Overview: A member of the RNA family "Archaeal RNase P" from Sulfolobales archaeon SCGC AB-777_J03, 307 nucleotides long. Rfam links the family to the GO terms multimeric ribonuclease P complex, tRNA processing and ribonuclease P activity. From the family's description: Ribonuclease P (RNase P) is a ubiquitous endoribonuclease, found in archaea, bacteria and eukarya as well as chloroplasts and mitochondria.
RNA sequence: GGCCCCUAGCGGAGGGCUCACGGCGUAAGCUGAGGAAACUCCAGCCUCCGAGCCCCAGAGAGGCCCCUUGAGGGGCGUGGGUAGUCCCUACGGCAACGGCACAGAAACGAGACCCGCCGAAGGCGCAGAUGAAAAUGAAGCCGAAGGCUCAAGGCGACUUGAGCCUUAAGCGGAUUGAGUCCUUCAGCGGGCUGAAACGGCCGUCCCUCUCGGAGCAAGUGGGGCCGAGAUGAGGUGGGGCUCGAUCGGCUCCAGAACGCAUAGUCGGAUGCCCUCAAAUACAGAAGCUGGGUUACAGCUAGGGGCC
Numbered sequence: 001g002g003c004c005c006c007u008a009g010c011g012g013a014g015g016g017c018u019c020a021c022g023g024c025g026u027a028a029g030c031u032g033a034g035g036a037a038a039c040u041c042c043a044g045c046c047u048c049c050g051a052g053c054c055c056c057a058g059a060g061a062g063g064c065c066c067c068u069u070g071a072g073g074g075g076c077g078u079g080g081g082u083a084g085u086c087c088c089u090a091c092g093g094c095a096a097c098g099g100c101a102c103a104g105a106a107a108c109g110a111g112a113c114c115c116g117c118c119g120a121a122g123g124c125g126c127a128g129a130u131g132a133a134a135a136u137g138a139a140g141c142c143g144a145a146g147g148c149u150c151a152a153g154g155c156g157a158c159u160u161g162a163g164c165c166u167u168a169a170g171c172g173g174a175u176u177g178a179g180u181c182c183u184u185c186a187g188c189g190g191g192c193u194g195a196a197a198c199g200g201c202c203g204u205c206c207c208u209c210u211c212g213g214a215g216c217a218a219g220u221g222g223g224g225c226c227g228a229g230a231u232g233a234g235g236u237g238g239g240g241c242u243c244g245a246u247c248g249g250c251u252c253c254a255g256a257a258c259g260c261a262u263a264g265u266c267g268g269a270u271g272c273c274c275u276c277a278a279a280u281a282c283a284g285a286a287g288c289u290g291g292g293u294u295a296c297a298g299c300u301a302g303g304g305g306c307c
Stems, first nucleotide, its partner, number of pairs: 001307003005303005011296001012276006021032004037294003041291005046215004051242006058211005063076005077091005092206002097203004113191005119185005134159001219258002224250005
The family's consensus secondary structure is taken from published work. Its Rfam clan is "RNaseP clan". The organism belongs to Sulfolobales, within Archaea.